This 89-nucleotide RNA from Zea mays belongs to the Rfam family "Small nucleolar RNA Z266". It scores 87 bits against the family's covariance model. Rfam links the family to the GO terms nucleolus and RNA processing. The family has 11 seed sequences and 719 matches in Rfam 15.1. The family's RNA type in Rfam is C/D-box small nucleolar RNA.
RNA sequence: GGUUAGCAGGAGUGAUGAACCAAUUAGAUGUGCGAAGCUAUCUUAUGGGCUUAACUUUUGAGGCAUACAUUCUGUCUGACCUGCCAGUC
Numbered sequence: 001g002g003u004u005a006g007c008a009g010g011a012g013u014g015a016u017g018a019a020c021c022a023a024u025u026a027g028a029u030g031u032g033c034g035a036a037g038c039u040a041u042c043u044u045a046u047g048g049g050c051u052u053a054a055c056u057u058u059u060g061a062g063g064c065a066u067a068c069a070u071u072c073u074g075u076c077u078g079a080c081c082u083g084c085c086a087g088u089c
Base pairs, nucleotide, nucleotide: 001089002088003087004086006084007083008082009081010080